A member of the RNA family "Clostridiales-1 RNA" from Anaerobium acetethylicum, 155 nucleotides long. The family's consensus secondary structure is taken from published work. Rfam 15.1 lists 1,172 matches to the family in 137 species.
RNA sequence: GGAUACCAGGGUCAAAAGGUCAUGCGUUUCAUGCUUGCAUGAAAAAGCAUGACCUUGGGACCCGCCAAAACAUGAGAAAGAAGCCCGACCAGGGCGGAUUUCUCAUGUUUUCAGGAUUGUGGGAGCACGAAGUGCGUAACAAUCCGCAGGUAUCC
Number, nucleotide and partner (000 for none) at each position: 001g155002g154003a153004u152005a151006c150007c149008a000009g000010g062011g061012u060013c059014a000015a000016a056017a055018g054019g053020u052021c051022a050023u049024g048025c047026g000027u045028u044029u042030c041031a040032u039033g038034c000035u000036u000037g000038c033039a032040u031041g030042a029043a000044a028045a027046a000047g025048c024049a023050u022051g021052a020053c019054c018055u017056u016057g000058g000059g013060a012061c011062c010063c000064g000065c000066c000067a111068a110069a109070a108071c107072a106073u105074g000075a000076g102077a101078a100079a099080g000081a000082a000083g095084c094085c093086c092087g000088a000089c000090c000091a000092g086093g085094g084095c083096g000097g000098a000099u079100u078101u077102c076103u000104c000105a073106u072107g071108u070109u069110u068111u067112c000113a000114g145115g144116a143117u142118u141119g140120u139121g000122g000123g000124a000125g135126c134127a133128c132129g000130a000131a000132g128133u127134g126135c125136g000137u000138a000139a120140c119141a118142a117143u116144c115145c114146g000147c000148a000149g007150g006151u005152a004153u003154c002155c001